A member of the RNA family "Group II catalytic intron D1-D4-1" from Anaerovibrio lipolyticus, 93 nucleotides long. The pairing is the family consensus, mapped onto this sequence. For this family Rfam cites "The ins and outs of group II introns" (Bonen and Vogel, Trends Genet, 2001). From the family's description: Group II introns are found in rRNA, tRNA and mRNA of organelles in fungi, plants and protists, and also in mRNA in bacteria. The family has 237 seed sequences and 2,508 matches in Rfam 15.1. NCBI's taxonomy places the organism under Bacteria, Negativicutes, Selenomonadales, Selenomonadaceae, Anaerovibrio. It scores 41 bits against the family's covariance model.

[Rfam]
Nucleotides: 093
Base pairs, nucleotide, nucleotide: 001026002025006021007020008019009018011016039046048093049092050091057086058085065080066079067078
Number, partner (000 for none) and nucleotide at each position: 001026u002025a003000a004000g005000c006021u007020a008019c009018g010000g011016u012000g013000a014000g015000a016011a017000g018009c019008g020007u021006g022000a023000g024000u025002u026001g027000a028000a029000c030000a031000u032000g033000c034000a035000g036000a037000a038000g039046u040000c041000a042000g043000u044000u045000c046039a047000a048093g049092u050091c051000a052000u053000a054000g055000u056000a057086c058085c059000g060000a061000u062000g063000a064000a065080a066079c067078c068000u069000g070000u071000g072000a073000a074000a075000g076000u077000a078067g079066g080065u081000a082000g083000g084000a085058g086057g087000g088000a089000a090000g091050g092049a093048c